[Rfam]
RNA sequence: GGUAUUGAGUGCCAGCGCUAAACCCCGGUUUGCUGGCCGGCAACCCUCCUCCGCGGUGGGGUGCCCCGGGUGAAGACCUGGUCCUCCCGCGUGGUGCGGGGCGGACAAGCGCGGACC
Numbered sequence: 001g002g003u004a005u006u007g008a009g010u011g012c013c014a015g016c017g018c019u020a021a022a023c024c025c026c027g028g029u030u031u032g033c034u035g036g037c038c039g040g041c042a043a044c045c046c047u048c049c050u051c052c053g054c055g056g057u058g059g060g061g062u063g064c065c066c067c068g069g070g071u072g073a074a075g076a077c078c079u080g081g082u083c084c085u086c087c088c089g090c091g092u093g094g095u096g097c098g099g100g101g102c103g104g105a106c107a108a109g110c111g112c113g114g115a116c117c
Stems, first nucleotide, its partner, number of pairs: 001078003009038001011037006021030002039065003044061003048056002081106004086101003
The family of this 117-nucleotide sequence from Actinokineospora auranticolor is "SAM (S-adenosyl methionine) riboswitch aptamer". Pairs were carried over by alignment from the consensus structure, which is taken from published work. Rfam links the family to the GO terms S-adenosylmethionine metabolic process and regulation of gene expression. From the family's description: SAM-IV is a mRNA element that regulates gene expression via direct sensing of S-adenosylmethionine (SAM or AdoMet). SAM-IV riboswitches share conserved nucleotide positions with the previously described SAM-I riboswitches sequence analysis and molecular recognition experiments suggest that SAM-I and SAM-IV riboswitches share similar ligand binding sites, but have different scaffolds.